Plant signal recognition particle RNA: a 305-nucleotide RNA sequence from Handroanthus impetiginosus. A reference for the family is Wild et al. (2002), "Towards the structure of the mammalian signal recognition particle", Curr Opin Struct Biol. It scores 247 bits against the family's covariance model. By type it is a non-coding RNA gene.

[Rfam]
RNA sequence: GCCGAGCUCAGUCACGUGAGUUUGUAACUCAAGUGGGGGCAUUAAUGUGAUUGGACAUUAGGCUUGCCCAAUUAGUUGGGCUAAGUGUGGCUAAUUGCUGGCUUGCCCAUUCCAAGCGAGGAGUUGGGCCAUGUAGUCUAAGCUAAAGCAUGGGUUACAUGGCCUUUAGAGAGGGGGGCAUUGCGUCAGGCUGGUUUCACAGAGCAGCGGAAACUUCCCGCUUCUUGCAAUGGAAGGAUAACGAGUUGGUGCCUCCUUAGCUCGUCAAAACUAGAUGGACUAGUCUUAAUCGGACAAUCACAUUU
Numbered sequence: 001g002c003c004g005a006g007c008u009c010a011g012u013c014a015c016g017u018g019a020g021u022u023u024g025u026a027a028c029u030c031a032a033g034u035g036g037g038g039g040c041a042u043u044a045a046u047g048u049g050a051u052u053g054g055a056c057a058u059u060a061g062g063c064u065u066g067c068c069c070a071a072u073u074a075g076u077u078g079g080g081c082u083a084a085g086u087g088u089g090g091c092u093a094a095u096u097g098c099u100g101g102c103u104u105g106c107c108c109a110u111u112c113c114a115a116g117c118g119a120g121g122a123g124u125u126g127g128g129c130c131a132u133g134u135a136g137u138c139u140a141a142g143c144u145a146a147a148g149c150a151u152g153g154g155u156u157a158c159a160u161g162g163c164c165u166u167u168a169g170a171g172a173g174g175g176g177g178g179c180a181u182u183g184c185g186u187c188a189g190g191c192u193g194g195u196u197u198c199a200c201a202g203a204g205c206a207g208c209g210g211a212a213a214c215u216u217c218c219c220g221c222u223u224c225u226u227g228c229a230a231u232g233g234a235a236g237g238a239u240a241a242c243g244a245g246u247u248g249g250u251g252c253c254u255c256c257u258u259a260g261c262u263c264g265u266c267a268a269a270a271c272u273a274g275a276u277g278g279a280c281u282a283g284u285c286u287u288a289a290u291c292g293g294a295c296a297a298u299c300a301c302a303u304u305u
Base pairs, nucleotide, nucleotide: 001040002039003038004023005022006021007020008019009018010017028037029036030035044304045303046302047301048300049299050298051297052296053295056292058289059288060287061285062284063283064282066280068278069277070276072274073273074272075271076270077269078263079262080261081260082259083258084257085256087255089253090252092251093250098249099248100247101246102245103244104243105242107237108236110235111234112233113232114231116228117227118226119225120224121223122222123221124220126165127164128163129162130161131160132159133158134157135156136155137154138153139152140151142149143148166171173218174217175216176215177214182211184209185208186207191202192201193200